Shown here is a 442-nucleotide part of an RNA from Pontibacter cellulosilyticus, a member of the family "Bacterial large subunit ribosomal RNA".
The family's consensus secondary structure is taken from published work.
Its family is annotated with structural constituent of ribosome and ribosome in the Gene Ontology.

[Rfam]
RNA sequence: CUCCCCGAAAUGCCUUUAGGGGCAGCGUCGCGGUCGAGUCAUGUGGAGGUAGAGCUACCGAUAGGACUAGGGGGAGUCACAUCCUACCGAAUCCUGACGAACUCCGAAUGCCAUUUGACAUACGCGGCAGUGAGGCGCAGGGUGCUAAGGUCCUGCGCCGAGAGGGAAAGAACCCAGACCGCCAGCUAAGGUCCCAAAGUCCAAGCUAAGUUGAACAAAGGGGGUCCAGUUGCACAGACAGCCAGGAUGUUGGCUUGGAAGCAGCCAUUCAUUUAAAGAGUGCGUAACAGCUCACUGGUCGAGCGACAGGGCAUCGAUAAUAAUCGGGCAUCAAGCAUGGCACCGAAGCUGCGGAUUGUAGUUUACUACACUGGUAGGGGAGCAUUCCAAGGGCGGAGAAGGCGUCCCGGCAAGGGGCGUUGGAGCGCUUGGAAAAGCAAAU
Dot-bracket structure: ((((((....(((((....))))).(((((((....(((((.((((.....(((....((..((((...((((((......)))).))...))))..))..)).).....)))).)))).).)))))).)...((((((((((......))))))))))....(((......)))...((((.(((...(((......(.(((.((.............((..((((.(((((.......(((((.(((..(((.........)))...)))(...)(...((......)).).)))))...))))).)))).))...................)).)))))))...)))))))(.(((((....))))).)....))))))(.(((((((.((......((((((((.....))))))))...)).)))))))..).....